[Rfam]
RNA sequence: UUAACAAAGAGUUUGAUCCUGGCUCAGGACGAACGCUGGCGGCGCGCCUAACACAUGCAAGUCGAACGGAGUUAUGAUGACAGAAGCCUUCGGGCGGAAGAUAUCAUAACUUAGUGGCGGACGGGUGAGUAACACGUGAGCAACCUGCCUAUCAGAGGGGGAUAACGUUCUGAAAAGAACGCUAAUACCGCAUAACGUGCGAGGGAGACAUCUCUCUUGUACCAAAGGAGCAAUCCGCUGAUAGAUGGGCUCGCGUCCGAUUAGGUAGUUGGUGAGGUAAUGGCUCACCAAGCCGACGAUCGGUAGCCGGACUGAGAGGUUGAACGGCCACAUUGGGACUGAGACACGGCCCAGACUCCUACGGGAGGCAGCAGUGGGGAAUAUUGCACAAUGGGGGAAACCCUGAUGCAGCGACGCCGCGUGAGGGAAGAAGGUUUUCGGAUUGUAAACCUCUGUCCUUGGUGACGAAAUAAGACGGUAGCCAAGGAGGAAGCCACGGCUAACUACGUGCCAGCAGCCGCGGUAAUACGUAGGUGGCAAGCGUUGUCCGGAAUUACUG
Dot-bracket structure: ........(((((.......))))).((((.((((((.(((((((((....(((.(((..(((..((.((.(((((((........................))))))).)).)))))......(((......((((((((..((...(((((((.(.((.....((((((....))))))......)).).....(((((((.(((....))).)))))))....(((....))).)))))))..))))))))))(((....(((..((((((((.......)))))))))))......)))..((((((((....))))...))))))).(((((............))))).((((....))))...)))))).).....(.(((...(((((....))))).)))).)).))))))..((((......((((....)))).....))))...(((((((...(........)....))))))...)..(((((......(((((.....((....)).......)))))))))).))))))))))..........
Annotation: Rfam assigns this 559-nucleotide part of an RNA from Fumia xinanensis to the family "Bacterial small subunit ribosomal RNA".